Rfam assigns this 172-nucleotide RNA sequence from Firmicutes bacterium AF36-19BH to the family "Lysine riboswitch aptamer".
On this family, see Grundy et al., Proc Natl Acad Sci U S A 2003: "The L box regulon: Lysine sensing by leader RNAs of bacterial lysine biosynthesis genes".
Gene Ontology term of the family: lysine biosynthetic process.
Pairs were carried over by alignment from the consensus structure, which is taken from published work.

RNA sequence: AAACACGAUAGAGGCGCGGACUUCAUCAGUACCGUGCAGGAGAACGCUCAGGACAGCUGCCUGCAUAAGAAAGGGGAUUCCGCCGAAGGGAUUUAUCCGUCCGGGAUGCUUCCCUGGGCUGCAUCAGAAUAUGCUGCAGACUGUCACAAUUAUGUGGAGCGCUAUCUGAUAU
Numbered sequence: 001a002a003a004c005a006c007g008a009u010a011g012a013g014g015c016g017c018g019g020a021c022u023u024c025a026u027c028a029g030u031a032c033c034g035u036g037c038a039g040g041a042g043a044a045c046g047c048u049c050a051g052g053a054c055a056g057c058u059g060c061c062u063g064c065a066u067a068a069g070a071a072a073g074g075g076g077a078u079u080c081c082g083c084c085g086a087a088g089g090g091a092u093u094u095a096u097c098c099g100u101c102c103g104g105g106a107u108g109c110u111u112c113c114c115u116g117g118g119c120u121g122c123a124u125c126a127g128a129a130u131a132u133g134c135u136g137c138a139g140a141c142u143g144u145c146a147c148a149a150u151u152a153u154g155u156g157g158a159g160c161g162c163u164a165u166c167u168g169a170u171a172u
Base pairs, nucleotide, nucleotide: 007166008165009164010163011162016083017082018081019080020079022077023076024075034066035065036064037063038062039061087115088114089113090112091111094108095107096106097105098104116142117141119139120138121137122136123135125133126132144157145156146155147154148153